Description: Rfam assigns this 88-nucleotide RNA from Anaeromonas frigoriresistens to the family "c-di-GMP-I riboswitch aptamer". A search with the family's covariance model found it, with a score of 82 bits. Pairs were carried over by alignment from the consensus structure, which is taken from published work.

RNA sequence: UAUAAAUAAAGGCAAACUCAUCGAAAGUUGAGGACGCAAAGCCAUGAGUCUAAAACAUAUCAAAUGUCAGGAUAGUCAGGCUGCUAUA
Number, nucleotide and partner (000 for none) at each position: 001u000002a000003u000004a000005a000006a000007u000008a000009a000010a000011g000012g037013c036014a000015a000016a000017c032018u031019c030020a029021u000022c027023g000024a000025a000026a000027g022028u000029u020030g019031a018032g017033g000034a000035c000036g013037c012038a000039a000040a082041g081042c080043c079044a000045u078046g077047a076048g073049u072050c071051u000052a000053a000054a000055a067056c066057a065058u064059a000060u000061c000062a000063a000064a058065u057066g056067u055068c000069a000070g000071g050072a049073u048074a000075g000076u047077c046078a045079g043080g042081c041082u040083g000084c000085u000086a000087u000088a000